[Rfam]
RNA sequence: UAAAACAAGUAGAAGCACCCGCUUCUCACCUGAUUGACACAUCCGUUUUGUAGUUAGCAGGUUACGAUGAAUUUUUUAUAUAUAAUCGUAGUGUGGGUGUUUGUGCAUCCACACUUUUUUAUUUUC
Numbered sequence: 001u002a003a004a005a006c007a008a009g010u011a012g013a014a015g016c017a018c019c020c021g022c023u024u025c026u027c028a029c030c031u032g033a034u035u036g037a038c039a040c041a042u043c044c045g046u047u048u049u050g051u052a053g054u055u056a057g058c059a060g061g062u063u064a065c066g067a068u069g070a071a072u073u074u075u076u077u078a079u080a081u082a083u084a085a086u087c088g089u090a091g092u093g094u095g096g097g098u099g100u101u102u103g104u105g106c107a108u109c110c111a112c113a114c115u116u117u118u119u120u121a122u123u124u125u126c
Stems, first nucleotide, its partner, number of pairs: 011026006028062003036055003039051002092113009
RNA: Ribosomal protein L20 leader